[Rfam]
RNA sequence: CUUCAGCGACCCGAGCCACAGCGGGCGCCCCUCCGGCCGCUGCUUGCCGUAGGUGGCCAGCAGCGCCUGCGCCUC
Numbered sequence: 001c002u003u004c005a006g007c008g009a010c011c012c013g014a015g016c017c018a019c020a021g022c023g024g025g026c027g028c029c030c031c032u033c034c035g036g037c038c039g040c041u042g043c044u045u046g047c048c049g050u051a052g053g054u055g056g057c058c059a060g061c062a063g064c065g066c067c068u069g070c071g072c073c074u075c
Base pairs, nucleotide, nucleotide: 016024017023031071033069038065039064043060044059047056048055049054
Dot-bracket structure: ...............((.....))......(.(....((...((..(((....)))..))...))...).)....
Description:
Rfam assigns this 75-nucleotide sequence from Actinomadura rubrisoli to the family "ASpks TB sRNA". The literature on the family includes a 2009 paper in Mol Microbiol by Arnvig and Young, "Identification of small RNAs in Mycobacterium tuberculosis". The source organism's lineage runs through Bacteria, Bacillati, Actinomycetes, Streptosporangiales and Actinomadura. The family has 77 seed sequences and 9,052 matches in Rfam 15.1. Rfam classes the family as an antisense RNA. A search with the family's covariance model found it, with a score of 78 bits.